The record is a 117-nucleotide sequence, which matches "ALIL pseudoknot" in Rfam. Pairs were carried over by alignment from the consensus structure, which is taken from published work.
RNA sequence: CGCAUAUUUCGCCCAGGCGGAGCUCGAGCGCCGACCGAAGACAUGAUUGCAUUUAUCGAUGAACUCCGCGAUGCCUAUGGGGUCGAGCCAAUCUGCAAGGUACUGCCGAUUGCCCCA
Numbered sequence: 001c002g003c004a005u006a007u008u009u010c011g012c013c014c015a016g017g018c019g020g021a022g023c024u025c026g027a028g029c030g031c032c033g034a035c036c037g038a039a040g041a042c043a044u045g046a047u048u049g050c051a052u053u054u055a056u057c058g059a060u061g062a063a064c065u066c067c068g069c070g071a072u073g074c075c076u077a078u079g080g081g082g083u084c085g086a087g088c089c090a091a092u093c094u095g096c097a098a099g100g101u102a103c104u105g106c107c108g109a110u111u112g113c114c115c116c117a
Stems, first nucleotide, its partner, number of pairs: 016032004078117005089112002092109002095106003